The family of this 114-nucleotide sequence from Helianthus annuus is "Plastid-psbA-1 3UTR RNA". On this family, see Richter et al., Plant Commun 2023: "Retrograde signaling in plants: A critical review focusing on the GUN pathway and beyond". Its Rfam clan is "Plastid-psbA 3UTR RNA clan". Rfam classes the family as a cis-regulatory element. The source organism's lineage runs through Eukaryota, Embryophyta, Tracheophyta, Spermatophyta and Helianthus. Pairs were carried over by alignment from the consensus structure, which was predicted with LocARNA.
RNA sequence: UUGAAGCUCCAUCUACAAAUGGAUAAGACUUUGGUCUGAUUGUAUAGGAGUUUUUGAACUAAAAAAGGAGCAAUAGCCUCCCUCUUGAUAAAACAAGAGGGCAUUUGUUCAUAU
Numbered sequence: 001u002u003g004a005a006g007c008u009c010c011a012u013c014u015a016c017a018a019a020u021g022g023a024u025a026a027g028a029c030u031u032u033g034g035u036c037u038g039a040u041u042g043u044a045u046a047g048g049a050g051u052u053u054u055u056g057a058a059c060u061a062a063a064a065a066a067g068g069a070g071c072a073a074u075a076g077c078c079u080c081c082c083u084c085u086u087g088a089u090a091a092a093a094c095a096a097g098a099g100g101g102c103a104u105u106u107g108u109u110c111a112u113a114u
Stems, first nucleotide, its partner, number of pairs: 008023005064114001066112001068110006076102001082099005